[Rfam]
RNA sequence: CGCCGACGUCCAAUUGGGGACGUUGAAGGGCCAAAUGGGGCCAGAGAU
Numbered sequence: 001c002g003c004c005g006a007c008g009u010c011c012a013a014u015u016g017g018g019g020a021c022g023u024u025g026a027a028g029g030g031c032c033a034a035a036u037g038g039g040g041c042c043a044g045a046g047a048u
Stems, first nucleotide, its partner, number of pairs: 004025008029042004
gut-2 RNA: a 48-nucleotide RNA sequence. It is one of the family's seed sequences. The family's RNA type in Rfam is small RNA.